[Rfam]
RNA: Small nucleolar RNA R442
Organism: Scaptodrosophila lebanonensis
RNA sequence: UGCAAGCUGUUGAGCGUGAUUUUGCUGUCAUAGUUACUCUGAUC
Numbered sequence: 001u002g003c004a005a006g007c008u009g010u011u012g013a014g015c016g017u018g019a020u021u022u023u024g025c026u027g028u029c030a031u032a033g034u035u036a037c038u039c040u041g042a043u044c
Stems, first nucleotide, its partner, number of pairs: 006015002016031005